Plastid-psbN 5UTR RNA: a 61-nucleotide RNA from Trema orientale. Plastid psbN is a non-coding RNA (ncRNA) recognised in plastids.

[Rfam]
RNA sequence: UGCAAUACUCAUCAAAAGAGUAUUCCUCCACCAAAGAGCUACUUUAUCAUAUUCUGAAUUC
Number, nucleotide and partner (000 for none) at each position: 001u000002g000003c000004a000005a000006u000007a000008c000009u000010c000011a000012u000013c000014a000015a000016a000017a045018g044019a043020g042021u041022a040023u000024u038025c000026c036027u035028c000029c000030a000031c000032c000033a000034a000035a027036g026037a000038g024039c000040u022041a021042c020043u019044u018045u017046a000047u000048c000049a000050u000051a000052u000053u000054c000055u000056g000057a000058a000059u000060u000061c000